[Rfam]
RNA sequence: CUGCAGCCAUUUAAGCUGACAGUGCCGCCCUCCCCAUGGCACCCGGUGUGUGGUGUCUGCAAACAGCAGCCUCCUGGGUAGUGCAUGCAGCCCGUUGCUUGUACAGGCUGGUCUAAGGGACCCUGGAGCCCUUC
Number, nucleotide and partner (000 for none) at each position: 001c000002u052003g051004c050005a049006g000007c000008c000009a000010u000011u000012u000013a000014a000015g000016c000017u000018g000019a047020c046021a000022g044023u000024g000025c000026c000027g040028c039029c000030c000031u000032c000033c000034c000035c000036a000037u000038g000039g028040c027041a000042c000043c000044c022045g000046g020047u019048g000049u005050g004051u003052g002053g000054u000055g000056u000057c000058u000059g000060c000061a000062a000063a000064c000065a000066g000067c000068a000069g000070c000071c000072u000073c000074c000075u000076g000077g122078g121079u120080a000081g000082u000083g000084c000085a000086u000087g000088c110089a109090g108091c107092c106093c000094g000095u000096u000097g000098c000099u000100u000101g000102u000103a000104c000105a000106g092107g091108c090109u089110g088111g000112u000113c000114u000115a000116a000117g000118g000119g000120a079121c078122c077123c000124u000125g000126g000127a000128g000129c000130c000131c000132u000133u000134c000
Shown here is a 134-nucleotide sequence from Erinaceus europaeus, a member of the family "Small nucleolar RNA SNORA70". On this family, see Charette and Gray, IUBMB Life 2000: "Pseudouridine in RNA: what, where, how, and why". snoRNA U70 seems to be exclusive to mammals and is a member of the H/ACA class of snoRNA which contain H (ANANNA) and ACA box motifs.